[Rfam]
RNA: mir-130 microRNA precursor family
RNA sequence: CACUGGCUGGAGCCCUUUAAACCUGGCCCAUUCGGCACCAGGGGGUCCCCCUGAUACUGACUGGGCCAGGUUUAAAGGGCUCCAGCCACUG
Numbered sequence: 001c002a003c004u005g006g007c008u009g010g011a012g013c014c015c016u017u018u019a020a021a022c023c024u025g026g027c028c029c030a031u032u033c034g035g036c037a038c039c040a041g042g043g044g045g046u047c048c049c050c051c052u053g054a055u056a057c058u059g060a061c062u063g064g065g066c067c068a069g070g071u072u073u074a075a076a077g078g079g080c081u082c083c084a085g086c087c088a089c090u091g
Base pairs, nucleotide, nucleotide: 003091005087006086007085008084009083010082012080013079014078015077016076017075018074019073022070023069024068025067026066027065028064029063030062